[Rfam]
RNA sequence: UUGGUUAGAACUCAGUUACCCCAUCGGUGCAACGCCGCUGGAAGGAGACCGCGACGCCGGCAGCGGCUCCGUCGGCAGAUCGCAUUCUGCCUGGCCUCGCCACGAGGCCAACGGGACAUAUAACAGUCAAC
Numbered sequence: 001u002u003g004g005u006u007a008g009a010a011c012u013c014a015g016u017u018a019c020c021c022c023a024u025c026g027g028u029g030c031a032a033c034g035c036c037g038c039u040g041g042a043a044g045g046a047g048a049c050c051g052c053g054a055c056g057c058c059g060g061c062a063g064c065g066g067c068u069c070c071g072u073c074g075g076c077a078g079a080u081c082g083c084a085u086u087c088u089g090c091c092u093g094g095c096c097u098c099g100c101c102a103c104g105a106g107g108c109c110a111a112c113g114g115g116a117c118a119u120a121u122a123a124c125a126g127u128c129a130a131c
Stems, first nucleotide, its partner, number of pairs: 021041003025037004046068002049066004074091006093109006